A member of the RNA family "c-di-AMP riboswitch aptamer (ydaO/yuaA leader)" from Streptomyces shenzhenensis, 185 nucleotides long. The organism belongs to Streptomyces, within Bacteria.
RNA sequence: CGUGACCCAUCGACGAACCACAUUUCGUACGGCAGGAGCGGGGGACCCAGGUAAGUCGCCGAACCGGACGGCCCAGCCGACCGGAACGGCUAGGGGUGAAGUCGAGUCGCCUUCCGGCGGCCCGGCCGGGCACCUCCCCCGCCCGAACCCGACAGCUCACCUCGCAGGCGCCGGAGAGGAACAUC
Numbered sequence: 001c002g003u004g005a006c007c008c009a010u011c012g013a014c015g016a017a018c019c020a021c022a023u024u025u026c027g028u029a030c031g032g033c034a035g036g037a038g039c040g041g042g043g044g045a046c047c048c049a050g051g052u053a054a055g056u057c058g059c060c061g062a063a064c065c066g067g068a069c070g071g072c073c074c075a076g077c078c079g080a081c082c083g084g085a086a087c088g089g090c091u092a093g094g095g096g097u098g099a100a101g102u103c104g105a106g107u108c109g110c111c112u113u114c115c116g117g118c119g120g121c122c123c124g125g126c127c128g129g130g131c132a133c134c135u136c137c138c139c140c141g142c143c144c145g146a147a148c149c150c151g152a153c154a155g156c157u158c159a160c161c162u163c164g165c166a167g168g169c170g171c172c173g174g175a176g177a178g179g180a181a182c183a184u185c
Stems, first nucleotide, its partner, number of pairs: 001167001006036002038165006048093001094150003102125003128144004
Dot-bracket structure: (....((...........................)).((((((....(............................................)(((.....(((..................)))..((((.........))))...))).........)))))).)..................